[Rfam]
RNA sequence: AUGUCUAAGUAUAAGCAAUUUAUACAGUGAAACUGCGAAUGGCUCAUUAAAUCAGUUAUCAUUUAUUUGAUCGUUCAUUACUACAUGGAUAACCGUGGUAAUUCUAGAGCUAAUACAUGCUAAAAAUCCCGACUUCUGGAAGGGAUGUAUUUAUUAGAUAAAAAACCAAUGCCUUCGGGCUGUUUGGUGAUUCAUAAUAACUUGUCGAAUCGCAUGCCUUGCGCGGCGAUGGUUCAUUCAAAUUUCUGCCCUAUCAACUUUCGAUGGUAGGAUAGUGGCCUACCAUGGUUUCAACGGGUAACGGGGAAUAAGGGUUCGAUUCCGGAGA
Numbered sequence: 001a002u003g004u005c006u007a008a009g010u011a012u013a014a015g016c017a018a019u020u021u022a023u024a025c026a027g028u029g030a031a032a033c034u035g036c037g038a039a040u041g042g043c044u045c046a047u048u049a050a051a052u053c054a055g056u057u058a059u060c061a062u063u064u065a066u067u068u069g070a071u072c073g074u075u076c077a078u079u080a081c082u083a084c085a086u087g088g089a090u091a092a093c094c095g096u097g098g099u100a101a102u103u104c105u106a107g108a109g110c111u112a113a114u115a116c117a118u119g120c121u122a123a124a125a126a127u128c129c130c131g132a133c134u135u136c137u138g139g140a141a142g143g144g145a146u147g148u149a150u151u152u153a154u155u156a157g158a159u160a161a162a163a164a165a166c167c168a169a170u171g172c173c174u175u176c177g178g179g180c181u182g183u184u185u186g187g188u189g190a191u192u193c194a195u196a197a198u199a200a201c202u203u204g205u206c207g208a209a210u211c212g213c214a215u216g217c218c219u220u221g222c223g224c225g226g227c228g229a230u231g232g233u234u235c236a237u238u239c240a241a242a243u244u245u246c247u248g249c250c251c252u253a254u255c256a257a258c259u260u261u262c263g264a265u266g267g268u269a270g271g272a273u274a275g276u277g278g279c280c281u282a283c284c285a286u287g288g289u290u291u292c293a294a295c296g297g298g299u300a301a302c303g304g305g306g307a308a309u310a311a312g313g314g315u316u317c318g319a320u321u322c323c324g325g326a327g328a
Stems, first nucleotide, its partner, number of pairs: 003036002008034003015028002043327003053248003058243002062241002068236003084119004093109001096106003126146005133139002151200006165188004171180003210229004215225003250298003257289003264286008302324004306317004